[Rfam]
Nucleotides: 058
Stems, first nucleotide, its partner, number of pairs: 009050001012047004026043006
Number, partner (000 for none) and nucleotide at each position: 001000c002000a003000c004000a005000c006000u007000g008000u009050u010000c011000c012047u013046c014045c015044a016000c017000u018000c019000g020000g021000a022000u023000c024000g025000u026043c027042c028041g029040g030039c031038a032000c033000g034000u035000u036000c037000c038031u039030g040029c041028c042027g043026g044015u045014g046013g047012a048000a049000a050009a051000g052000g053000a054000g055000u056000c057000g058000a